[Rfam]
RNA: ZMP/ZTP riboswitch aptamer (pfl RNA motif)
RNA sequence: AAUGGACCCGACGACUGGCGCGGGUGGGCCACCACCGGGAAGUCUCAACGAGCGCAUCGACCGCCUGGGUGCCCUCU
Numbered sequence: 001a002a003u004g005g006a007c008c009c010g011a012c013g014a015c016u017g018g019c020g021c022g023g024g025u026g027g028g029c030c031a032c033c034a035c036c037g038g039g040a041a042g043u044c045u046c047a048a049c050g051a052g053c054g055c056a057u058c059g060a061c062c063g064c065c066u067g068g069g070u071g072c073c074c075u076c077u
Base pairs, nucleotide, nucleotide: 003048005046006045010044011043012042015039016038017065018064019063020062024035025034026033027032054072055071056070057069058068